[Rfam]
RNA sequence: GGCCAGGAGGAAAGAAACAAUAUAGACUGAAACAUUUAGUGUAGGCAAGCAAGGAGCUAGAAAGAUUCGCACUUAACCCUAGCC
Numbered sequence: 001g002g003c004c005a006g007g008a009g010g011a012a013a014g015a016a017a018c019a020a021u022a023u024a025g026a027c028u029g030a031a032a033c034a035u036u037u038a039g040u041g042u043a044g045g046c047a048a049g050c051a052a053g054g055a056g057c058u059a060g061a062a063a064g065a066u067u068c069g070c071a072c073u074u075a076a077c078c079c080u081a082g083c084c
Stems, first nucleotide, its partner, number of pairs: 001084003005080003
The family of this 84-nucleotide sequence from Lentivirus humimdef1 is "HIV gag stem loop 3 (GSL3)". By type it is a cis-regulatory element. A reference for the family is Damgaard et al. (2004), "RNA interactions in the 5' region of the HIV-1 genome", J Mol Biol. Rfam's curators put it in the seed alignment. NCBI's taxonomy places the organism under Viruses, Riboviria, Ortervirales, Retroviridae, Lentivirus humimdef1.